Shown here is a 122-nucleotide RNA from Shigella dysenteriae, a member of the family "MicC RNA".
Rfam classes the family as a small RNA.
For this family Rfam cites "A bioinformatics based approach to discover small RNA genes in the Escherichia coli genome" (Chen et al., Biosystems, 2002).
[Rfam]
RNA sequence: CGGGUUAUAUGCCUUUAUUGUCACAGAUUUUAUUUUCUGUUGGGCCAUUGCAUUGCUACUGAUUUUCCAACAUAUAAAAAGACAAGCCCGAACAGUCGUCCGGGCUUUUUUUUAGAAUUGGA
Numbered sequence: 001c002g003g004g005u006u007a008u009a010u011g012c013c014u015u016u017a018u019u020g021u022c023a024c025a026g027a028u029u030u031u032a033u034u035u036u037c038u039g040u041u042g043g044g045c046c047a048u049u050g051c052a053u054u055g056c057u058a059c060u061g062a063u064u065u066u067c068c069a070a071c072a073u074a075u076a077a078a079a080a081g082a083c084a085a086g087c088c089c090g091a092a093c094a095g096u097c098g099u100c101c102g103g104g105c106u107u108u109u110u111u112u113u114a115g116a117a118u119u120g121g122a
Base pairs, nucleotide, nucleotide: 007021008020009019010017011016039071040070041069042068043067044066081109082108084107085106086105087104088103089102090101092099093098